[Rfam]
RNA: DUF3800-VI RNA
RNA sequence: CAGUUGAGAGGGCCGCAUCAGGCGGUUCGCUAGGCAUAAGCCUACUCGGCUG
Numbered sequence: 001c002a003g004u005u006g007a008g009a010g011g012g013c014c015g016c017a018u019c020a021g022g023c024g025g026u027u028c029g030c031u032a033g034g035c036a037u038a039a040g041c042c043u044a045c046u047c048g049g050c051u052g
Base pairs, nucleotide, nucleotide: 001052002051003050004049005048006047007046008045010028011027012026013025014024015023016022031044032043033042034041035040